[Rfam]
RNA sequence: GUCGUUCAUCUUGUUUAGCGUAGACUUGAGAUUCUUUUUCAUUUGCUCAAAAGCUCGUCGUUGAAUAAGACGGAAGUAGGGAUUUUCCCGAAGGAACGCGCC
Numbered sequence: 001g002u003c004g005u006u007c008a009u010c011u012u013g014u015u016u017a018g019c020g021u022a023g024a025c026u027u028g029a030g031a032u033u034c035u036u037u038u039u040c041a042u043u044u045g046c047u048c049a050a051a052a053g054c055u056c057g058u059c060g061u062u063g064a065a066u067a068a069g070a071c072g073g074a075a076g077u078a079g080g081g082a083u084u085u086u087c088c089c090g091a092a093g094g095a096a097c098g099c100g101c102c
Stems, first nucleotide, its partner, number of pairs: 003098005009070012073099001079089003
The family of this 102-nucleotide RNA from Acaryochloris thomasi is "Glutamine riboswitch aptamer (glnA leader)". Taxonomically the source falls in Acaryochloris thomasi (Bacteria, Cyanophyceae, Acaryochloridaceae, Acaryochloris). A reference for the family is Ames and Breaker (2011), "Bacterial aptamers that selectively bind glutamine", RNA Biol. Gene Ontology term of the family: glutamine binding.